[Rfam]
RNA sequence: UUUUCUUGGUGGUGGCACUUCCCUCUGCGGGUGGUGUGAUUUGCUGUGCCUAACGGCCAAACAGACACAAGCCCGCUUACUGCGGGCUUUUUUAU
Numbered sequence: 001u002u003u004u005c006u007u008g009g010u011g012g013u014g015g016c017a018c019u020u021c022c023c024u025c026u027g028c029g030g031g032u033g034g035u036g037u038g039a040u041u042u043g044c045u046g047u048g049c050c051u052a053a054c055g056g057c058c059a060a061a062c063a064g065a066c067a068c069a070a071g072c073c074c075g076c077u078u079a080c081u082g083c084g085g086g087c088u089u090u091u092u093u094a095u
Base pairs, nucleotide, nucleotide: 009044010043011042012041015037016036017035018034019033021031022030023029070088071087072086073085074084075083076082
The record is a 95-nucleotide RNA sequence from Photobacterium proteolyticum, which matches "Tryptophan operon leader" in Rfam. Rfam classes the family as a cis-regulatory leader. At least 6 amino acid operons are known to be regulated by attenuation. A search with the family's covariance model found it, with a score of 53 bits. The literature on the family includes a 1982 paper in Annu Rev Genet by Kolter and Yanofsky, "Attenuation in amino acid biosynthetic operons".